[Rfam]
RNA sequence: CUUUUUUGCCGCUCGAAAGAAAGGCUUUCGUGUACAUAACAAUCAUUUACAAUAAUAUUAGCAUG
Numbered sequence: 001c002u003u004u005u006u007u008g009c010c011g012c013u014c015g016a017a018a019g020a021a022a023g024g025c026u027u028u029c030g031u032g033u034a035c036a037u038a039a040c041a042a043u044c045a046u047u048u049a050c051a052a053u054a055a056u057a058u059u060a061g062c063a064u065g
Stems, first nucleotide, its partner, number of pairs: 014030006
Dot-bracket structure: .............((((((.....))))))...................................

A member of the RNA family "S15-Flavobacteria ribosomal protein leader", 65 nucleotides long.
A reference for the family is Eckert and Weinberg (2020), "Discovery of 20 novel ribosomal leader candidates in bacteria and archaea", BMC Microbiol.
The family's consensus secondary structure is taken from published work.
Rfam's curators put it in the seed alignment.